[Rfam]
RNA: Selenocysteine transfer RNA
RNA sequence: GGGGGCGGAUGGGGUCUGGUGGCCCUCCCGGUCUUCAAAAUCGUGCGAGAGGCGAGCCGAUCUCGUCUCUGGUGGGUUCGAUUCCCACACGCUCCC
Dot-bracket structure: ((((((((..((((((....))))))(.((((.......)))).)..(((((((.........)))))))..((((.......))))).)))))))